[Rfam]
RNA sequence: CGCUUUGGCUGAAUUAGUGAUCGGCUGAAGCAUUAAAUUUAUGUAAUUUGGAGUUUAUUAUGUCACUAAGCAACAAAGAAAAAGCAGAAAUCGUAGCUAAAUUUGCACGUGUAGAA
Numbered sequence: 001c002g003c004u005u006u007g008g009c010u011g012a013a014u015u016a017g018u019g020a021u022c023g024g025c026u027g028a029a030g031c032a033u034u035a036a037a038u039u040u041a042u043g044u045a046a047u048u049u050g051g052a053g054u055u056u057a058u059u060a061u062g063u064c065a066c067u068a069a070g071c072a073a074c075a076a077a078g079a080a081a082a083a084g085c086a087g088a089a090a091u092c093g094u095a096g097c098u099a100a101a102u103u104u105g106c107a108c109g110u111g112u113a114g115a116a
Stems, first nucleotide, its partner, number of pairs: 007026006047070005053064001
Ribosomal S15 leader: a 116-nucleotide sequence from Pseudoalteromonas luteoviolacea. Rfam classes the family as a cis-regulatory leader. NCBI's taxonomy places the organism under Bacteria, Gammaproteobacteria, Pseudoalteromonadaceae, Pseudoalteromonas, Pseudoalteromonas luteoviolacea. Its Rfam clan is "Ribosomal Protein S15 Leader clan". The match comes from Rfam's covariance-model search (95 bits). Its family is annotated with regulation of translation, ncRNA-mediated in the Gene Ontology. The E. coli Ribosomal S15 gene 5' UTR can form two alternative structures. One that is a series of three hairpins, The other includes a pseudoknot. The literature on the family includes a 1996 paper in Biochimie by Benard et al., "Pseudoknot and translational control in the expression of the S15 ribosomal protein".